[Rfam]
RNA sequence: UCCUAAUGAUGAAUCUUCACAUGUCCGACCUUCUGUAUGGUGCCAGAGCCUGAAAAGGUGAACCCACUGGCAUCGUCAGUAGGAGAGGAAGGAUGCCAUGUUCCAGCAGGAACAGUCUGACUAGGGG
Numbered sequence: 001u002c003c004u005a006a007u008g009a010u011g012a013a014u015c016u017u018c019a020c021a022u023g024u025c026c027g028a029c030c031u032u033c034u035g036u037a038u039g040g041u042g043c044c045a046g047a048g049c050c051u052g053a054a055a056a057g058g059u060g061a062a063c064c065c066a067c068u069g070g071c072a073u074c075g076u077c078a079g080u081a082g083g084a085g086a087g088g089a090a091g092g093a094u095g096c097c098a099u100g101u102u103c104c105a106g107c108a109g110g111a112a113c114a115g116u117c118u119g120a121c122u123a124g125g126g127g
Stems, first nucleotide, its partner, number of pairs: 001126004